[Rfam]
RNA sequence: GUCCACUGGCCUCUCCUGAGGCAGAUGAUGACUUUGCGACGGGCGGACGGAGGGACGCGUGACGAAGUUUGUCGUAUUCUGAAUU
Number, nucleotide and partner (000 for none) at each position: 001g000002u000003c000004c000005a000006c000007u000008g000009g000010c000011c000012u000013c000014u000015c000016c000017u000018g000019a000020g000021g000022c000023a000024g000025a075026u074027g073028a072029u071030g070031a069032c067033u066034u065035u064036g063037c000038g000039a000040c061041g060042g000043g058044c057045g056046g000047a000048c054049g000050g000051a000052g000053g000054g048055a000056c045057g044058c043059g000060u041061g040062a000063c036064g035065a034066a033067g032068u000069u031070u030071g029072u028073c027074g026075u025076a000077u000078u000079c000080u000081g000082a000083a000084u000085u000
A member of the RNA family "Giardia snoRNA GlsR1" from Giardia duodenalis, 85 nucleotides long. A reference for the family is Li et al. (2012), "The profile of snoRNA-derived microRNAs that regulate expression of variant surface proteins in Giardia lamblia", Cell Microbiol. The pairing is the family consensus, mapped onto this sequence. The sequence is in the family's curated seed alignment. The source organism's lineage runs through Eukaryota, Metamonada, Diplomonadida, Giardiinae and Giardia.